MIR480 microRNA precursor family: a 125-nucleotide sequence from Populus tomentosa. The literature on the family includes a 2005 paper in Plant Cell by Lu et al., "Novel and mechanical stress-responsive MicroRNAs in Populus trichocarpa that are absent from Arabidopsis". Rfam 15.1 lists 3,070 matches to the family in 171 species.
Nucleotides: 125
Base pairs, nucleotide, nucleotide: 004124006122008119009118012115014113018108023104025102027099028098029097030096031095
Number, partner (000 for none) and nucleotide at each position: 001000u002000a003000a004124u005000u006122u007000a008119u009118u010000u011000a012115a013000g014113u015000c016000a017000u018108a019000u020000c021000a022000u023104u024000a025102u026000u027099u028098a029097a030096u031095u032000a033000u034000g035000a036000u037000a038000a039000u040000u041000a042000c043000a044000u045000a046000u047000u048000u049000a050000a051000u052000u053000g054000u055000u056000c057000a058000g059000a060000g061000a062000c063000a064000u065000c066000a067000a068000u069000u070000a071000u072000c073000a074000c075000a076000g077000g078000c079000u080000c081000u082000a083000c084000u085000a086000c087000u088000u089000c090000a091000a092000g093000c094000c095031a096030a097029u098028u099027a100000u101000a102025g103000g104023a105000g106000a107000u108018u109000u110000a111000u112000a113014a114000c115012u116000u117000u118009g119008a120000u121000g122006a123000c124004g125000g